RNA sequence: CAUUUUGGCAGGGCAGCCUUUGUCAAACUACACAAAAAACAUUGUUGUUAUUUUUGUGUAGUUUGACAAAGGCUGCCCUGCCAAAAUGUUAUGUUAUU
Numbered sequence: 001c002a003u004u005u006u007g008g009c010a011g012g013g014c015a016g017c018c019u020u021u022g023u024c025a026a027a028c029u030a031c032a033c034a035a036a037a038a039a040c041a042u043u044g045u046u047g048u049u050a051u052u053u054u055u056g057u058g059u060a061g062u063u064u065g066a067c068a069a070a071g072g073c074u075g076c077c078c079u080g081c082c083a084a085a086a087u088g089u090u091a092u093g094u095u096a097u098u
Base pairs, nucleotide, nucleotide: 005084006083007082008081009080010079011078012077015074016073017072018071019070020069021068022067024065025063026062029060030059031058032057033056034055036053037052
Rfam assigns this 98-nucleotide RNA sequence from Candidula unifasciata to the family "mir-210 microRNA precursor family". The match comes from Rfam's covariance-model search (52 bits). The family's consensus secondary structure was predicted with WAR. The literature on the family includes a 2005 paper in Proc Natl Acad Sci U S A by Cai et al., "Kaposi's sarcoma-associated herpesvirus expresses an array of viral microRNAs in latently infected cells".